Rfam assigns this 116-nucleotide RNA sequence from Nonomuraea cypriaca to the family "Actinobacteria sRNA Ms_IGR-7".
The pairing is the family consensus, mapped onto this sequence.
On this family, see Li et al., RNA 2013: "Identification of small RNAs in Mycobacterium smegmatis using heterologous Hfq".
The family's RNA type in Rfam is small RNA.
Lineage of the source: Bacteria > Actinomycetota > Actinomycetes > Streptosporangiales > Nonomuraea.
RNA sequence: ACAAGGUGCCUUCCUAAGCUGGCUGAUUGAAGCGUAGAGAACUCCAAUCUUCCCAGGUCAGAGGACACUUCGCGUUAUUUCGCAACACAUACAGCAAUUUCAAGCCGUGGAUCCAG
Numbered sequence: 001a002c003a004a005g006g007u008g009c010c011u012u013c014c015u016a017a018g019c020u021g022g023c024u025g026a027u028u029g030a031a032g033c034g035u036a037g038a039g040a041a042c043u044c045c046a047a048u049c050u051u052c053c054c055a056g057g058u059c060a061g062a063g064g065a066c067a068c069u070u071c072g073c074g075u076u077a078u079u080u081c082g083c084a085a086c087a088c089a090u091a092c093a094g095c096a097a098u099u100u101c102a103a104g105c106c107g108u109g110g111a112u113c114c115a116g
Base pairs, nucleotide, nucleotide: 002072004070005069006068007067008066010064011063012062013061015060017058019056020055021054022053025049026048027047029045031043032042099111100110101109102108